[Rfam]
RNA sequence: GUUUUGAGAACCAUUUGAAUCAAGUAGUGGUUCAAAUGGUUCUCAAAA
Numbered sequence: 001g002u003u004u005u006g007a008g009a010a011c012c013a014u015u016u017g018a019a020u021c022a023a024g025u026a027g028u029g030g031u032u033c034a035a036a037u038g039g040u041u042c043u044c045a046a047a048a
Base pairs, nucleotide, nucleotide: 004046005045006044007043008042009041010040011039012038013037014036015035016034017033018032019031020030021029022028

The family of this 48-nucleotide RNA sequence from Coptis chinensis is "Plastid-ccsA-ndhD-2 3UTR RNA". Rfam classes the family as a cis-regulatory element. Lineage of the source: Eukaryota > Viridiplantae > Tracheophyta > Spermatophyta > Coptis. Rfam 15.1 lists 875 matches to the family in 517 species. The literature on the family includes a 2023 paper in Plant Commun by Richter et al., "Retrograde signaling in plants: A critical review focusing on the GUN pathway and beyond". The base pairs follow the family's consensus structure, which was predicted with LocARNA. It scores 57 bits against the family's covariance model. About the family: Plastid ccsA-ndhD-2 is a non-coding RNA (ncRNA) recognised in plastids. It was found in the three prime untranslated region (3UTR) of ccsA and ndhD genes, its 3UTR location suggests a role in transcript maturation.